Description:
Small nucleolar RNA snR8: a 157-nucleotide sequence from Sugiyamaella lignohabitans. NCBI's taxonomy places the organism under Eukaryota, Ascomycota, Dipodascomycetes, Trichomonascaceae, Sugiyamaella. It scores 77 bits against the family's covariance model.
[Rfam]
RNA sequence: UUUUUCUUUGAUACGAAUGUCUCCUAUUCACUGCACCAUUUAGGACCAAUGAAUGAGUGGAGGGGAAAAGGAGCCUAGACGAAGUUCAACAGCCAACCUCAUAAUCAAGAACAUUAUCUCUUAAUCUGUUUUUGAUACUGGGCAGCUUGAUACAUAC
Number, nucleotide and partner (000 for none) at each position: 001u000002u000003u000004u000005u000006c000007u000008u000009u000010g000011a000012u000013a000014c000015g000016a000017a000018u000019g075020u000021c000022u072023c071024c000025u000026a000027u000028u000029c000030a000031c062032u061033g000034c059035a058036c000037c055038a054039u053040u052041u051042a000043g000044g000045a000046c000047c000048a000049a000050u000051g041052a040053a039054u038055g037056a000057g000058u035059g034060g000061a032062g031063g000064g000065g000066a000067a000068a000069a000070g000071g023072a022073g000074c000075c019076u000077a000078g000079a000080c000081g000082a000083a000084g000085u000086u150087c149088a148089a147090c000091a000092g143093c142094c141095a000096a000097c000098c000099u000100c000101a000102u000103a000104a000105u135106c134107a133108a132109g131110a130111a129112c000113a000114u000115u000116a000117u000118c000119u000120c000121u000122u000123a000124a000125u000126c000127u000128g000129u111130u110131u109132u108133u107134g106135a105136u000137a000138c000139u000140g000141g094142g093143c092144a000145g000146c000147u089148u088149g087150a086151u000152a000153c000154a000155u000156a000157c000